[Rfam]
RNA: Bacterial RNase P class A
RNA sequence: GAAGUUGGCUGGGCGAUCGCUGCACUCUUUUGGGUGUGGAGGAAAGUCCGGGCUCCACUGGGCAGAGUGCCAGGUAACGCCUGGGCGGCGUGAGCCGACGGAAAGUGCCACAGAGAUCAGACCGCCGAUGGCGUUGCGAUAGCUUCGCACAGGUAAGGGUGAAAAGGUGCGGUAAGAGCGCACCGCGCGCAUGGCAACAUGUCGCGGCACGGUAAACCCCACUCGGAGCAAGACCAAAUAGGGGAGCAGACGUGUGGCCCGCGCGGCUCCCGGGUAGGUCGCUUGAGGUUUGUGGUGACAUAAAUCCAAGAGGAAUGAUCGUCCUCGACAGAACCCGGCUUACAGGCCAACUUCUUUU
Numbered sequence: 001g002a003a004g005u006u007g008g009c010u011g012g013g014c015g016a017u018c019g020c021u022g023c024a025c026u027c028u029u030u031u032g033g034g035u036g037u038g039g040a041g042g043a044a045a046g047u048c049c050g051g052g053c054u055c056c057a058c059u060g061g062g063c064a065g066a067g068u069g070c071c072a073g074g075u076a077a078c079g080c081c082u083g084g085g086c087g088g089c090g091u092g093a094g095c096c097g098a099c100g101g102a103a104a105g106u107g108c109c110a111c112a113g114a115g116a117u118c119a120g121a122c123c124g125c126c127g128a129u130g131g132c133g134u135u136g137c138g139a140u141a142g143c144u145u146c147g148c149a150c151a152g153g154u155a156a157g158g159g160u161g162a163a164a165a166g167g168u169g170c171g172g173u174a175a176g177a178g179c180g181c182a183c184c185g186c187g188c189g190c191a192u193g194g195c196a197a198c199a200u201g202u203c204g205c206g207g208c209a210c211g212g213u214a215a216a217c218c219c220c221a222c223u224c225g226g227a228g229c230a231a232g233a234c235c236a237a238a239u240a241g242g243g244g245a246g247c248a249g250a251c252g253u254g255u256g257g258c259c260c261g262c263g264c265g266g267c268u269c270c271c272g273g274g275u276a277g278g279u280c281g282c283u284u285g286a287g288g289u290u291u292g293u294g295g296u297g298a299c300a301u302a303a304a305u306c307c308a309a310g311a312g313g314a315a316u317g318a319u320c321g322u323c324c325u326c327g328a329c330a331g332a333a334c335c336c337g338g339c340u341u342a343c344a345g346g347c348c349a350a351c352u353u354c355u356u357u358u
Base pairs, nucleotide, nucleotide: 001354002353003352004351005350006349007348008347009346010345011343012323013322014321015320016319017318018317020039021038022037023036024035025034026033027032044341045340046339048338049337050336051335052334053228054227055226056225060260061259062258063257065224066223067222068221069220070084071083072082073081074080085099086097087096088095089094100219101218105217106216107213108212109211122158123157124154125153126152129149130148166184167183168182169181170180171179185208186206187205188204189203191200192199193198232280233279234278235277242271243270244269245268246267247266251265252264253263254262255261287306288305289304290303291302292301293300294299